[Rfam]
A member of the RNA family "Fluoride riboswitch aptamer (crcB RNA motif)" from Trinickia fusca, 63 nucleotides long.
The match comes from Rfam's covariance-model search (57 bits).
RNA sequence: UUGCGCGCGGGAGAUGGCAUUCCUCCUUUAACCGCCCCCAGGGCUGAUGAUGCCUACCGCAAC
Numbered sequence: 001u002u003g004c005g006c007g008c009g010g011g012a013g014a015u016g017g018c019a020u021u022c023c024u025c026c027u028u029u030a031a032c033c034g035c036c037c038c039c040a041g042g043g044c045u046g047a048u049g050a051u052g053c054c055u056a057c058c059g060c061a062a063c
Stems, first nucleotide, its partner, number of pairs: 010026004016054006034044003